[Rfam]
RNA: skipping-rope RNA
Organism: Butyrivibrio hungatei
RNA sequence: AGAAGCUGAGGACGGAACAGGCAGCCGUCGCGCCCUUGUGGUCUUAAAAUGAGAUGCUGGAUUGCCACCCAGCCUCUUCU
Number, nucleotide and partner (000 for none) at each position: 001a080002g079003a078004a077005g076006c000007u000008g074009a000010g000011g029012a028013c027014g026015g025016a000017a000018c000019a000020g066021g065022c064023a063024g000025c015026c014027g013028u012029c011030g000031c051032g042033c041034c040035c000036u000037u000038g000039u000040g034041g033042u032043c000044u000045u000046a000047a000048a000049a000050u000051g031052a000053g000054a000055u000056g073057c072058u071059g070060g069061a000062u000063u023064g022065c021066c020067a000068c000069c060070c059071a058072g057073c056074c008075u000076c005077u004078u003079c002080u001